[Rfam]
RNA sequence: CUAGCACUUUGACAGGUCCCUCCCUAGGCAGUGGGGCCAGGAUUUGGUAGCUGGUGCUGAAAGAAAACCCUUGAUUGCAUCCUUGCCCUGGUGCUAUACCAGUGGUAGCGGUCAUUCAGUGGGACACAG
Numbered sequence: 001c002u003a004g005c006a007c008u009u010u011g012a013c014a015g016g017u018c019c020c021u022c023c024c025u026a027g028g029c030a031g032u033g034g035g036g037c038c039a040g041g042a043u044u045u046g047g048u049a050g051c052u053g054g055u056g057c058u059g060a061a062a063g064a065a066a067a068c069c070c071u072u073g074a075u076u077g078c079a080u081c082c083u084u085g086c087c088c089u090g091g092u093g094c095u096a097u098a099c100c101a102g103u104g105g106u107a108g109c110g111g112u113c114a115u116u117c118a119g120u121g122g123g124a125c126a127c128a129g
Stems, first nucleotide, its partner, number of pairs: 003058006013046003017042003022036004068123003071119004076114002079112002083108005088102004

Description: A member of the RNA family "Small nucleolar RNA SNORA30/SNORA37 family" from Heterocephalus glaber, 129 nucleotides long. For this family Rfam cites "RNomics: an experimental approach that identifies 201 candidates for novel, small, non-messenger RNAs in mouse" (Huttenhofer et al., EMBO J, 2001). The organism belongs to Heterocephalus, within Eukaryota. Pairs were carried over by alignment from the consensus structure, which was predicted with RNAfold. By type it is an H/ACA-box small nucleolar RNA. Rfam's curators write: The members of this family belong to the H/ACA class of snoRNAs that guide the sites of modification of uridines to pseudouridines. This family includes human ACA30 (SNORA30), ACA37 (SNORA37) and the mouse homolog MBI-26. Both ACA37 and ACA30 are predicted to guide the pseudouridylation of residue U4643 of 28S rRNA. The match comes from Rfam's covariance-model search (129 bits).